[Rfam]
RNA sequence: UGCACUCGGCAAGUCCUACACGACCAGCUCCUGAAAAAUCCUCCAGGGUGGGAACACAGCAAAGGUAUUCGGUUGUAGCGGUGCGAUGUAGGUAGCUUGCCACUU
Numbered sequence: 001u002g003c004a005c006u007c008g009g010c011a012a013g014u015c016c017u018a019c020a021c022g023a024c025c026a027g028c029u030c031c032u033g034a035a036a037a038a039u040c041c042u043c044c045a046g047g048g049u050g051g052g053a054a055c056a057c058a059g060c061a062a063a064g065g066u067a068u069u070c071g072g073u074u075g076u077a078g079c080g081g082u083g084c085g086a087u088g089u090a091g092g093u094a095g096c097u098u099g100c101c102a103c104u105u
Stems, first nucleotide, its partner, number of pairs: 008101007016091005021085002023082002